[Rfam]
RNA sequence: AUUGCAUGUGAGUCCCUCAUUUGGUGUGCUUAGCUGUUUUUCAGUUUGAUAUUGCUAGCUGCCUUGUGAAGGGCUUACGUGUGUU
Numbered sequence: 001a002u003u004g005c006a007u008g009u010g011a012g013u014c015c016c017u018c019a020u021u022u023g024g025u026g027u028g029c030u031u032a033g034c035u036g037u038u039u040u041u042c043a044g045u046u047u048g049a050u051a052u053u054g055c056u057a058g059c060u061g062c063c064u065u066g067u068g069a070a071g072g073g074c075u076u077a078c079g080u081g082u083g084u085u
Base pairs, nucleotide, nucleotide: 004082005081006080007079008078009077010076011075012074013073014072015071017069018068019067020066023063024062030058031057032056033055034054
Shown here is an 85-nucleotide RNA sequence from Drosophila navojoa, a member of the family "mir-980 microRNA precursor family".